The record is a 52-nucleotide RNA from Nocardioides acrostichi, which matches "L31-Actinobacteria ribosomal protein leader" in Rfam.
[Rfam]
RNA sequence: UCGGCACCGGUUCACGUGCGUCCGCCCUCCCGGCGGUCGGCGACCCGGCGCC
Numbered sequence: 001u002c003g004g005c006a007c008c009g010g011u012u013c014a015c016g017u018g019c020g021u022c023c024g025c026c027c028u029c030c031c032g033g034c035g036g037u038c039g040g041c042g043a044c045c046c047g048g049c050g051c052c
Base pairs, nucleotide, nucleotide: 003052004051005050007048008047009046010045015042016041017040019039020038022036023035024034025033026032
The organism belongs to Nocardioides, within Bacteria. The family's RNA type in Rfam is cis-regulatory leader.